[Rfam]
The family of this 144-nucleotide RNA from Georgenia soli is "c-di-AMP riboswitch aptamer (ydaO/yuaA leader)". The pairing is the family consensus, mapped onto this sequence.

Nucleotides: 144
Stems, first nucleotide, its partner, number of pairs: 001030002032124006042068002069109003077086003089103004
Number, partner (000 for none) and nucleotide at each position: 001030c002029c003000g004000c005000c006000c007000g008000g009000c010000a011000u012000c013000g014000c015000g016000c017000g018000c019000u020000c021000c022000a023000g024000u025000g026000g027000c028000a029002g030001g031000g032124g033123c034122g035121g036120g037119g038000a039000a040000a041000c042068c043067a044000a045000c046000g047000c048000a049000u050000g051000c052000g053000g054000c055000c056000c057000u058000u059000u060000c061000c062000g063000g064000g065000c066000u067043u068042g069109g070108g071107g072000u073000g074000a075000a076000g077086u078085g079084c080000g081000g082000a083000a084079g085078c086077a087000c088000g089103g090102g091101g092100c093000c094000u095000c096000u097000c098000c099000a100092g101091u102090c103089c104000c105000a106000a107071c108070c109069c110000g111000a112000c113000a114000g115000c116000u117000c118000a119037c120036c121035c122034c123033g124032c125000a126000g127000g128000g129000a130000a131000c132000u133000c134000g135000g136000a137000g138000a139000g140000g141000u142000a143000g144000u